The family of this 82-nucleotide sequence from Coptis chinensis is "small nucleolar RNA snoR117". The organism belongs to Coptis, within Eukaryota. Rfam classes the family as a C/D-box small nucleolar RNA. The family has 6 seed sequences and 419 matches in Rfam 15.1. A search with the family's covariance model found it, with a score of 68 bits.
RNA sequence: GGCCUGUGAUGUGUAAAAUUGUCCGUACCAUCUGAGAUCAUUUUCUCUGAUGCAUUCUUCAAAUCAAUUUUUCCUGAGGCUC
Number, nucleotide and partner (000 for none) at each position: 001g081002g080003c079004c078005u000006g000007u000008g000009a000010u000011g000012u000013g000014u000015a000016a000017a000018a000019u000020u000021g000022u000023c000024c000025g000026u000027a000028c000029c000030a000031u000032c000033u000034g000035a000036g000037a000038u000039c000040a000041u000042u000043u000044u000045c000046u000047c000048u000049g000050a000051u000052g000053c000054a000055u000056u000057c000058u000059u000060c000061a000062a000063a000064u000065c000066a000067a000068u000069u000070u000071u000072u000073c000074c000075u000076g000077a000078g004079g003080c002081u001082c000